[Rfam]
RNA sequence: AUGUAGCUAUGAAGCGAGAGGUUGUGAUACACCCGGAGGCGUUGCCACGCAUCUAUGUAUUAGUUUUCUCGUGGAGCUAGCCUAUUCUAAGAAAUAGACGA
Numbered sequence: 001a002u003g004u005a006g007c008u009a010u011g012a013a014g015c016g017a018g019a020g021g022u023u024g025u026g027a028u029a030c031a032c033c034c035g036g037a038g039g040c041g042u043u044g045c046c047a048c049g050c051a052u053c054u055a056u057g058u059a060u061u062a063g064u065u066u067u068c069u070c071g072u073g074g075a076g077c078u079a080g081c082c083u084a085u086u087c088u089a090a091g092a093a094a095u096a097g098a099c100g101a
Stems, first nucleotide, its partner, number of pairs: 014072003018068004025062007080099001082097005